[Rfam]
RNA sequence: GCCCGUGUAGCUCAGUGGUAGAGCACUUCCUUGGUAAGGAAGAGGUCACGAGUUCAAUCCUCGUCACGGGCU
Number, nucleotide and partner (000 for none) at each position: 001g071002c070003c069004c068005g067006u066007g065008u000009a000010g024011c023012u022013c021014a000015g000016u000017g000018g000019u000020a000021g013022a012023g011024c010025a000026c042027u041028u040029c039030c038031u000032u000033g000034g000035u000036a000037a000038g030039g029040a028041a027042g026043a000044g000045g000046u000047c000048a064049c063050g062051a061052g060053u000054u000055c000056a000057a000058u000059c000060c052061u051062c050063g049064u048065c007066a006067c005068g004069g003070g002071c001072u000
RNA: tRNA